[Rfam]
RNA sequence: ACUGUGGAGUAUCAAAAAAUGUCGGUAGCUAAGGCAAAGACAGAUACGUUGAAGCAGUAA
Numbered sequence: 001a002c003u004g005u006g007g008a009g010u011a012u013c014a015a016a017a018a019a020u021g022u023c024g025g026u027a028g029c030u031a032a033g034g035c036a037a038a039g040a041c042a043g044a045u046a047c048g049u050u051g052a053a054g055c056a057g058u059a060a
Base pairs, nucleotide, nucleotide: 001058002057003056004055005054009047010046011045012044013043020042021041022040028035029034